[Rfam]
This 366-nucleotide RNA sequence from Firmicutes bacterium CAG:103 belongs to the Rfam family "transfer-messenger RNA". The family is grouped with related families in Rfam's "tRNA clan". Rfam's curators write: Bacterial tmRNA, also known as 10Sa RNA or SsrA, is named for its dual tRNA and mRNA-like properties.
RNA sequence: GGGGAUGUACCGGUUUCGACGGGGGUGUGGAGGCAGGAAUAGCGGGCGGCGGCGCCUGACCGCCAUAAAACGGGCACCUUAUAAAUUAAAGAACAACAACGAAACUGUUCUUCUCGCUGCUUAAUUAGCGAGCGUUCCCGCCGGGAGGACCACGGCCCGGCAGCGGAGCGUCGAUGAGUGGUGAACGUGCGCACGCUAAGCUUUGCGCGUGCCAUGCAUGAUGAAGCUACCGGACGGACAGGCUUGCCGGUUUGCCUGUCCUGAAGGGAAAGGGGACGCACAGCGUCCCGCAAAAACCCGCUGCGCCCGGAGAAGUUCCUGUCAAAGCGCUUUCGGACGAGGGUUCAACUCCCUCCAUCUCCACCA
Numbered sequence: 001g002g003g004g005a006u007g008u009a010c011c012g013g014u015u016u017c018g019a020c021g022g023g024g025g026u027g028u029g030g031a032g033g034c035a036g037g038a039a040u041a042g043c044g045g046g047c048g049g050c051g052g053c054g055c056c057u058g059a060c061c062g063c064c065a066u067a068a069a070a071c072g073g074g075c076a077c078c079u080u081a082u083a084a085a086u087u088a089a090a091g092a093a094c095a096a097c098a099a100c101g102a103a104a105c106u107g108u109u110c111u112u113c114u115c116g117c118u119g120c121u122u123a124a125u126u127a128g129c130g131a132g133c134g135u136u137c138c139c140g141c142c143g144g145g146a147g148g149a150c151c152a153c154g155g156c157c158c159g160g161c162a163g164c165g166g167a168g169c170g171u172c173g174a175u176g177a178g179u180g181g182u183g184a185a186c187g188u189g190c191g192c193a194c195g196c197u198a199a200g201c202u203u204u205g206c207g208c209g210u211g212c213c214a215u216g217c218a219u220g221a222u223g224a225a226g227c228u229a230c231c232g233g234a235c236g237g238a239c240a241g242g243c244u245u246g247c248c249g250g251u252u253u254g255c256c257u258g259u260c261c262u263g264a265a266g267g268g269a270a271a272g273g274g275g276a277c278g279c280a281c282a283g284c285g286u287c288c289c290g291c292a293a294a295a296a297c298c299c300g301c302u303g304c305g306c307c308c309g310g311a312g313a314a315g316u317u318c319c320u321g322u323c324a325a326a327g328c329g330c331u332u333u334c335g336g337a338c339g340a341g342g343g344u345u346c347a348a349c350u351c352c353c354u355c356c357a358u359c360u361c362c363a364c365c366a
Stems, first nucleotide, its partner, number of pairs: 001362007020335009032323009043309005049064001052061001054075005113132007133170006140161006149182005189212004194207003199228006230267002236261004242255002246301002249298004339355005